[Rfam]
RNA sequence: CACGCGCUGCCGCCGAGUCCGCGUCGCACGCGGAGCCGGGGACCCACCUCUCCUUGGGGUGAAUCCGGCGUGCCCGCCCACGGGCCCGCCGGUAGGGCGAACCUUCACGCCCGAACCCGUCAGCUAACCCGGUAGGCGGCCGACAGAAGGAGUU
Numbered sequence: 001c002a003c004g005c006g007c008u009g010c011c012g013c014c015g016a017g018u019c020c021g022c023g024u025c026g027c028a029c030g031c032g033g034a035g036c037c038g039g040g041g042a043c044c045c046a047c048c049u050c051u052c053c054u055u056g057g058g059g060u061g062a063a064u065c066c067g068g069c070g071u072g073c074c075c076g077c078c079c080a081c082g083g084g085c086c087c088g089c090c091g092g093u094a095g096g097g098c099g100a101a102c103c104u105u106c107a108c109g110c111c112c113g114a115a116c117c118c119g120u121c122a123g124c125u126a127a128c129c130c131g132g133u134a135g136g137c138g139g140c141c142g143a144c145a146g147a148a149g150g151a152g153u154u
Base pairs, nucleotide, nucleotide: 011138012137013136014135018034019033020032021031022030023029024028035133036132037131038130039129040128045056046055057118058117059116065092066091067090068089069088070087095112096111097110098109

This 154-nucleotide sequence from Sphaerisporangium melleum belongs to the Rfam family "c-di-AMP riboswitch aptamer (ydaO/yuaA leader)". The match comes from Rfam's covariance-model search (80 bits). Taxonomically the source falls in Sphaerisporangium (Bacteria, Actinomycetota, Actinomycetes, Streptosporangiales).